[Rfam]
Nucleotides: 035
Base pairs, nucleotide, nucleotide: 002021003020004019005018010034011033012032
Number, partner (000 for none) and nucleotide at each position: 001000a002021u003020g004019g005018c006000g007000a008000a009000u010034g011033c012032u013000g014000a015000a016000a017000g018005g019004c020003c021002a022000u023000a024000a025000a026000c027000g028000a029000g030000u031000a032012g033011g034010c035000a